RNA sequence: GUACGAGUGCCGCUGAGUCGCCUCACAGAGGCGAAUCGGGGACCCACCGAGUACGUGGGGUGAAUCCGCGGAACACGCGCGGUAGGGCGAUCUUCCGGCCCGAACCCGUCAGCUAACCCGGUAAGCGGCUUGAAGGAAGAAGG
Numbered sequence: 001g002u003a004c005g006a007g008u009g010c011c012g013c014u015g016a017g018u019c020g021c022c023u024c025a026c027a028g029a030g031g032c033g034a035a036u037c038g039g040g041g042a043c044c045c046a047c048c049g050a051g052u053a054c055g056u057g058g059g060g061u062g063a064a065u066c067c068g069c070g071g072a073a074c075a076c077g078c079g080c081g082g083u084a085g086g087g088c089g090a091u092c093u094u095c096c097g098g099c100c101c102g103a104a105c106c107c108g109u110c111a112g113c114u115a116a117c118c119c120g121g122u123a124a125g126c127g128g129c130u131u132g133a134a135g136g137a138a139g140a141a142g143g
Base pairs, nucleotide, nucleotide: 011127012126013125014124018034019033020032021031022030035122036121037120038119039118040117045057046056058107059106060105066082067081068080069079085101086100087099088098